[Rfam]
RNA sequence: UUAAAAACUUUAGCGCCAUGUGCCAUUAAGUUGGCUAACGAGGUUUCAAGUUAUCGAACUUUCGGCGGAUGCUUGAACGUUUUGUACGGAAACGCAUGCAGUAACAAAUAAAAGGGUAACCUUCAACAAAAAACUGUAGCCGUACAUUU
Numbered sequence: 001u002u003a004a005a006a007a008c009u010u011u012a013g014c015g016c017c018a019u020g021u022g023c024c025a026u027u028a029a030g031u032u033g034g035c036u037a038a039c040g041a042g043g044u045u046u047c048a049a050g051u052u053a054u055c056g057a058a059c060u061u062u063c064g065g066c067g068g069a070u071g072c073u074u075g076a077a078c079g080u081u082u083u084g085u086a087c088g089g090a091a092a093c094g095c096a097u098g099c100a101g102u103a104a105c106a107a108a109u110a111a112a113a114g115g116g117u118a119a120c121c122u123u124c125a126a127c128a129a130a131a132a133a134c135u136g137u138a139g140c141c142g143u144a145c146a147u148u149u
Stems, first nucleotide, its partner, number of pairs: 001030002004027001045077005054065004078094005097138006112123004

Rfam assigns this 149-nucleotide RNA from Lachnospiraceae bacterium C7 to the family "glmS glucosamine-6-phosphate activated ribozyme aptamer". The match comes from Rfam's covariance-model search (57 bits).